SAH (S-adenosyl-L-homocysteine) riboswitch aptamer: a 136-nucleotide RNA sequence from Paraburkholderia sp. DHOC27.
Gene Ontology terms of the family: regulation of gene expression and S-adenosylhomocysteine metabolic process.
On this family, see Wang et al., Mol Cell 2008: "Riboswitches that sense S-adenosylhomocysteine and activate genes involved in coenzyme recycling".
RNA sequence: GUCUCCGAGGAGCGUUGCGACAGGGGCGGUGAAUCGAGAUUCGCCGGAUACCUGCCAGGCUCGGAGACUUUCAAUCGGACGGACUGAAGGCGCUAUGCGCUUCAGAAACCACCGCAUCGAACGGCGCUCACGUCAA
Numbered sequence: 001g002u003c004u005c006c007g008a009g010g011a012g013c014g015u016u017g018c019g020a021c022a023g024g025g026g027c028g029g030u031g032a033a034u035c036g037a038g039a040u041u042c043g044c045c046g047g048a049u050a051c052c053u054g055c056c057a058g059g060c061u062c063g064g065a066g067a068c069u070u071u072c073a074a075u076c077g078g079a080c081g082g083a084c085u086g087a088a089g090g091c092g093c094u095a096u097g098c099g100c101u102u103c104a105g106a107a108a109c110c111a112c113c114g115c116a117u118c119g120a121a122c123g124g125c126g127c128u129c130a131c132g133u134c135a136a
Stems, first nucleotide, its partner, number of pairs: 002067007021054004026049001